[Rfam]
RNA sequence: CAUCUUCGAUCUGUUGCGGGCAAAUAAAGUGGAUAUGGCUGUCAAAUCCGCCUGCUGUCAGAAUACGCCCUUCACCGGCGAUUGCCUCGGUUCCCGGUCCGAUGAUGAUAUCGACGCCCGGUUGCGUAUCGGGGUUCCCCGCCUUGCCAAUCUUGUGGAUGCGCCCGUCUUUCAGCCCGACGUCUGCUUUGUAGAUGCCGGAAUGGUCCACGAUCAGCGCAUUGGUAAUGACAGUAUCAACUGCGCCUUGUGCACGCGUGGCUUGGGAUUGUCCCAUUCCGUCACG
Numbered sequence: 001c002a003u004c005u006u007c008g009a010u011c012u013g014u015u016g017c018g019g020g021c022a023a024a025u026a027a028a029g030u031g032g033a034u035a036u037g038g039c040u041g042u043c044a045a046a047u048c049c050g051c052c053u054g055c056u057g058u059c060a061g062a063a064u065a066c067g068c069c070c071u072u073c074a075c076c077g078g079c080g081a082u083u084g085c086c087u088c089g090g091u092u093c094c095c096g097g098u099c100c101g102a103u104g105a106u107g108a109u110a111u112c113g114a115c116g117c118c119c120g121g122u123u124g125c126g127u128a129u130c131g132g133g134g135u136u137c138c139c140c141g142c143c144u145u146g147c148c149a150a151u152c153u154u155g156u157g158g159a160u161g162c163g164c165c166c167g168u169c170u171u172u173c174a175g176c177c178c179g180a181c182g183u184c185u186g187c188u189u190u191g192u193a194g195a196u197g198c199c200g201g202a203a204u205g206g207u208c209c210a211c212g213a214u215c216a217g218c219g220c221a222u223u224g225g226u227a228a229u230g231a232c233a234g235u236a237u238c239a240a241c242u243g244c245g246c247c248u249u250g251u252g253c254a255c256g257c258g259u260g261g262c263u264u265g266g267g268a269u270u271g272u273c274c275c276a277u278u279c280c281g282u283c284a285c286g
Base pairs, nucleotide, nucleotide: 005286008283009282011158012157013156014155018076019075022072023071031052032051034050037048038047040045057069059067077148078147081144084142085141089138090137093134094133095132096130097129098128101125104123105122107117163273166271167270170268171267172266173265174264175263177261178260185221186220187219189217190216191215200209201208223258224257225255228251230249231248234244235243236242
A member of the RNA family "5' ureB small RNA" from Ascidiaceihabitans donghaensis, 286 nucleotides long. The match comes from Rfam's covariance-model search (120 bits).